[Rfam]
RNA: T-box leader
RNA sequence: GCUAAAUCAUUGAAGAGGAAAAGUAAGAGUAAUGACUGUUUAUUAGAGAGAACCAUCAUCGGCUGAAAGUGGUUUAAACCUCUCAUUCUCUGAAGUGCCCCUCUGAGUCCUGUUUCGAACCUUUAUAGUAGAAAUAGGCGGUUACCUUCCCGUUAACGAGGCAGAGUUGGAGCUUUUAUUAUAUGAAAGCUUAAACAGAGUGGAACCGCGUGUAAACGUCUCUGUC
Numbered sequence: 001g002c003u004a005a006a007u008c009a010u011u012g013a014a015g016a017g018g019a020a021a022a023g024u025a026a027g028a029g030u031a032a033u034g035a036c037u038g039u040u041u042a043u044u045a046g047a048g049a050g051a052a053c054c055a056u057c058a059u060c061g062g063c064u065g066a067a068a069g070u071g072g073u074u075u076a077a078a079c080c081u082c083u084c085a086u087u088c089u090c091u092g093a094a095g096u097g098c099c100c101c102u103c104u105g106a107g108u109c110c111u112g113u114u115u116c117g118a119a120c121c122u123u124u125a126u127a128g129u130a131g132a133a134a135u136a137g138g139c140g141g142u143u144a145c146c147u148u149c150c151c152g153u154u155a156a157c158g159a160g161g162c163a164g165a166g167u168u169g170g171a172g173c174u175u176u177u178a179u180u181a182u183a184u185g186a187a188a189g190c191u192u193a194a195a196c197a198g199a200g201u202g203g204a205a206c207c208g209c210g211u212g213u214a215a216a217c218g219u220c221u222c223u224g225u226c
Stems, first nucleotide, its partner, number of pairs: 008107001015103004026091004031086001039078003050075006110137007139152003170192009197223004208219004